[Rfam]
Rfam assigns this 91-nucleotide RNA from Streptomyces sp. A0642 to the family "che1 RNA".
RNA sequence: CGGACAGGGGGGUUCCUGCUGACCGCAGGGCCUGUCCGAAACAGGUUGCGCGAACGCGUGGCCAGUGGUUGUCGCUCGGGGGUGAUCGCCG
Numbered sequence: 001c002g003g004a005c006a007g008g009g010g011g012g013u014u015c016c017u018g019c020u021g022a023c024c025g026c027a028g029g030g031c032c033u034g035u036c037c038g039a040a041a042c043a044g045g046u047u048g049c050g051c052g053a054a055c056g057c058g059u060g061g062c063c064a065g066u067g068g069u070u071g072u073c074g075c076u077c078g079g080g081g082g083u084g085a086u087c088g089c090c091g
Stems, first nucleotide, its partner, number of pairs: 001038008014030006044063008
Pairs were carried over by alignment from the consensus structure, which is taken from published work. The match comes from Rfam's covariance-model search (93 bits).